[Rfam]
RNA sequence: AAUCCUGCCGGUGAUGAGAUCCACCGUAAACCGCCCGCUGCUAAUGACUUCUACCCGGAA
Numbered sequence: 001a002a003u004c005c006u007g008c009c010g011g012u013g014a015u016g017a018g019a020u021c022c023a024c025c026g027u028a029a030a031c032c033g034c035c036c037g038c039u040g041c042u043a044a045u046g047a048c049u050u051c052u053a054c055c056c057g058g059a060a
Stems, first nucleotide, its partner, number of pairs: 010025004016051003020047002033041002

Fluoride riboswitch aptamer (crcB RNA motif): a 60-nucleotide RNA sequence.